[Rfam]
The family of this 62-nucleotide RNA sequence from Arsenophonus endosymbiont of Bemisia tabaci is "Pseudomonas sRNA P26". This small RNA (sRNA) was computationally identified in the genome of the opportunistic pathogen Pseudomonas aeruginosa and its expression verified by northern blot analysis. For this family Rfam cites "Identification of 17 Pseudomonas aeruginosa sRNAs and prediction of sRNA-encoding genes in 10 diverse pathogens using the bioinformatic tool sRNAPredict2" (Livny et al., Nucleic Acids Res, 2006). Lineage of the source: Bacteria > Enterobacterales > Morganellaceae > Arsenophonus > Arsenophonus endosymbiont of Bemisia tabaci. The family's consensus secondary structure was predicted with RNAalifold.

RNA sequence: UGCUUUAAGUUGGGAGCCUAAUUUUAUAGGCUGACGGCUGGUGAUUUUUUAGUCACCAGCCU
Numbered sequence: 001u002g003c004u005u006u007a008a009g010u011u012g013g014g015a016g017c018c019u020a021a022u023u024u025u026a027u028a029g030g031c032u033g034a035c036g037g038c039u040g041g042u043g044a045u046u047u048u049u050u051a052g053u054c055a056c057c058a059g060c061c062u
Stems, first nucleotide, its partner, number of pairs: 015032004036061010